Rfam assigns this 135-nucleotide RNA sequence from Pseudomonas entomophila to the family "Pseudomonas sRNA P18". Rfam's curators put it in the seed alignment. NCBI's taxonomy places the organism under Bacteria, Pseudomonadota, Gammaproteobacteria, Pseudomonadaceae, Pseudomonas entomophila. Rfam classes the family as a small RNA.
RNA sequence: GGCGGCGUGCUGCUCAGCCCGUUUCUGAUCUACGUGUUGAUGGCGCUGUUGCUCACCGGCGUGCUGCGCCUGGUGGUCCAGGCCACCCCCCUGGGGCGCUGGAUCUGGCAUGAAGCGCUGUUCGACGCGGCGUUG
Numbered sequence: 001g002g003c004g005g006c007g008u009g010c011u012g013c014u015c016a017g018c019c020c021g022u023u024u025c026u027g028a029u030c031u032a033c034g035u036g037u038u039g040a041u042g043g044c045g046c047u048g049u050u051g052c053u054c055a056c057c058g059g060c061g062u063g064c065u066g067c068g069c070c071u072g073g074u075g076g077u078c079c080a081g082g083c084c085a086c087c088c089c090c091c092u093g094g095g096g097c098g099c100u101g102g103a104u105c106u107g108g109c110a111u112g113a114a115g116c117g118c119u120g121u122u123c124g125a126c127g128c129g130g131c132g133u134u135g
Base pairs, nucleotide, nucleotide: 002067003066004065005064006063007062008061009060010059011058012052013051015048016047017046018045019043020042021041022040023039068133069132075097077095079093080092081091098131099130100129101128104125105124108121109120110119